This 360-nucleotide sequence from Tamilnaduibacter salinus belongs to the Rfam family "transfer-messenger RNA". The organism belongs to Tamilnaduibacter, within Bacteria. The family's consensus secondary structure is taken from published work.
RNA sequence: GGGGACGAUAUGGCUUCGACGCCGGAUGCGAAACCUUGGGUGCAUGCCGAGAUGGCAGCGAAUCUCGUUAAUCGAAAGCUGCUUUAAAAUAGUCGCAAACGACGACAACUACGCACUGGCGGCGUAAAGCCGCUGGUCGUCCUGACUGGGGUGCCUGUUCCCCAGACUUUCAGGACGUCAUAGCAAACAGGAUGCGCUUUCAGUCAGAGCUCACUGACUGAGGGCAAAGACCCAAAGAGCUCGCCUCCUGCACCCUGACCUUCGGGUCGCUUGAGGUUAAACGAAUAGAAGGACACUAAGCAUGUAGAUCUCAAGGCGGAGUACUGGCGGACGCGGGUUCGAUUCCCGCCGUCUCCACCA
Numbered sequence: 001g002g003g004g005a006c007g008a009u010a011u012g013g014c015u016u017c018g019a020c021g022c023c024g025g026a027u028g029c030g031a032a033a034c035c036u037u038g039g040g041u042g043c044a045u046g047c048c049g050a051g052a053u054g055g056c057a058g059c060g061a062a063u064c065u066c067g068u069u070a071a072u073c074g075a076a077a078g079c080u081g082c083u084u085u086a087a088a089a090u091a092g093u094c095g096c097a098a099a100c101g102a103c104g105a106c107a108a109c110u111a112c113g114c115a116c117u118g119g120c121g122g123c124g125u126a127a128a129g130c131c132g133c134u135g136g137u138c139g140u141c142c143u144g145a146c147u148g149g150g151g152u153g154c155c156u157g158u159u160c161c162c163c164a165g166a167c168u169u170u171c172a173g174g175a176c177g178u179c180a181u182a183g184c185a186a187a188c189a190g191g192a193u194g195c196g197c198u199u200u201c202a203g204u205c206a207g208a209g210c211u212c213a214c215u216g217a218c219u220g221a222g223g224g225c226a227a228a229g230a231c232c233c234a235a236a237g238a239g240c241u242c243g244c245c246u247c248c249u250g251c252a253c254c255c256u257g258a259c260c261u262u263c264g265g266g267u268c269g270c271u272u273g274a275g276g277u278u279a280a281a282c283g284a285a286u287a288g289a290a291g292g293a294c295a296c297u298a299a300g301c302a303u304g305u306a307g308a309u310c311u312c313a314a315g316g317c318g319g320a321g322u323a324c325u326g327g328c329g330g331a332c333g334c335g336g337g338u339u340c341g342a343u344u345c346c347c348g349c350c351g352u353c354u355c356c357a358c359c360a
Stems, first nucleotide, its partner, number of pairs: 001356007020329006034316007043304005048067005054083006115137009138177006144167001146165006154191006196225009208241005243277005250270002253266003257296001261290003333349005
Dot-bracket structure: (((((((............((((((........(((((((..((((([[[[[.((((((...]]]]]..........))))))...............................(((((((((.....)))))))))(((((((.((((((..[[[[[[)))))).)....))))))........]]]]]]....(((((((((...[[[[[....)))))))))...........]]]]].(((((..((.(((.[...[[[)))..))..)))))..........]]].....]...))))).....))))))).......))))))...(((((.......))))))))))))....
From the family's description: Bacterial tmRNA, also known as 10Sa RNA or SsrA, is named for its dual tRNA and mRNA-like properties. Its role is to liberate the mRNA from a stalled ribosome. To accomplish this part of the tmRNA is used as a reading frame that ends in a translation stop signal.